This 73-nucleotide RNA from Brevinema andersonii belongs to the Rfam family "tRNA".

RNA sequence: GCCACAGUAGCUCAGUUGGCAGAGCAAUUGAUUCGUAAUCAAUAGGUCGGCGGUUCGAUCCCGCCCUGUGGCU
Numbered sequence: 001g002c003c004a005c006a007g008u009a010g011c012u013c014a015g016u017u018g019g020c021a022g023a024g025c026a027a028u029u030g031a032u033u034c035g036u037a038a039u040c041a042a043u044a045g046g047u048c049g050g051c052g053g054u055u056c057g058a059u060c061c062c063g064c065c066c067u068g069u070g071g072c073u
Base pairs, nucleotide, nucleotide: 001072002071003070004069005068006067007066010025011024012023013022027043028042029041030040031039049065050064051063052062053061
Annotation:
By type it is a transfer RNA. The family's consensus secondary structure is taken from published work. The organism belongs to Brevinema, within Bacteria.